[Rfam]
RNA sequence: CCCACACGACAGGGGAGCGCCUCGGGCGCUGAGAGUGCGGACAGCCGCAGACCCUCGAACCUGCUCCGGUUAGCACCGGCGAAGGAAGUCGAGUUUCUCUCUUU
Numbered sequence: 001c002c003c004a005c006a007c008g009a010c011a012g013g014g015g016a017g018c019g020c021c022u023c024g025g026g027c028g029c030u031g032a033g034a035g036u037g038c039g040g041a042c043a044g045c046c047g048c049a050g051a052c053c054c055u056c057g058a059a060c061c062u063g064c065u066c067c068g069g070u071u072a073g074c075a076c077c078g079g080c081g082a083a084g085g086a087a088g089u090c091g092a093g094u095u096u097c098u099c100u101c102u103u104u
Stems, first nucleotide, its partner, number of pairs: 007091004011055004017029005036049005060085003066079004
Annotation
This 104-nucleotide RNA sequence from Ruania alkalisoli belongs to the Rfam family "TPP riboswitch aptamer (THI element)". Taxonomically the source falls in Ruania (Bacteria, Actinomycetota, Actinomycetes, Micrococcales). A search with the family's covariance model found it, with a score of 65 bits. The base pairs follow the family's consensus structure, which is taken from published work.